The family of this 129-nucleotide RNA from Nesterenkonia cremea is "ALIL pseudoknot". Its family is annotated with positive regulation of translational frameshifting in the Gene Ontology. A search with the family's covariance model found it, with a score of 68 bits. Pairs were carried over by alignment from the consensus structure, which is taken from published work.
[Rfam]
RNA sequence: GGCUUUUUUCGCGGCGGAGCUCGACCGCCCACAGCGCUGAUCGUCGACUACAUCGACAGCCACAAGCACCAGUUCGGCGUCGAGCCGAUCUGCCGGACGCUGACCGCGGCCGGGAUGCAGAUCGCGCCG
Numbered sequence: 001g002g003c004u005u006u007u008u009u010c011g012c013g014g015c016g017g018a019g020c021u022c023g024a025c026c027g028c029c030c031a032c033a034g035c036g037c038u039g040a041u042c043g044u045c046g047a048c049u050a051c052a053u054c055g056a057c058a059g060c061c062a063c064a065a066g067c068a069c070c071a072g073u074u075c076g077g078c079g080u081c082g083a084g085c086c087g088a089u090c091u092g093c094c095g096g097a098c099g100c101u102g103a104c105c106g107c108g109g110c111c112g113g114g115a116u117g118c119a120g121a122u123c124g125c126g127c128c129g
Base pairs, nucleotide, nucleotide: 013029014028015027016026017025075129076128077127078126079125086124087123089121090120091119092118093117